[Rfam]
RNA sequence: UCAACAAAGUAGCAAUACACCAUGUCUUGAUAAAGCAAGACAUGGGGUAUUGCUACUUUGG
Numbered sequence: 001u002c003a004a005c006a007a008a009g010u011a012g013c014a015a016u017a018c019a020c021c022a023u024g025u026c027u028u029g030a031u032a033a034a035g036c037a038a039g040a041c042a043u044g045g046g047g048u049a050u051u052g053c054u055a056c057u058u059u060g061g
Base pairs, nucleotide, nucleotide: 006059007058008057009056010055011054012053013052014051015050016049017048021044022043024041025040026039027038028037029036
Dot-bracket structure: .....((((((((((((...((.((((((......)))))).))...))))))))))))..
Background
Rfam assigns this 61-nucleotide RNA sequence from Musa balbisiana to the family "Plastid-psbA-4 3UTR RNA". The source organism's lineage runs through Eukaryota, Tracheophyta, Liliopsida, Zingiberales and Musa. From the family's description: Plastid psbA-4 is a non-coding RNA (ncRNA) present in plastids. It was identified in inverted repeat sequences in the 3 prime untranslate region (3UTR) of photosystem II quinone-binding protein (psbA). A reference for the family is Richter et al. (2023), "Retrograde signaling in plants: A critical review focusing on the GUN pathway and beyond", Plant Commun. Rfam classes the family as a cis-regulatory element. Clan: Plastid-psbA 3UTR RNA clan.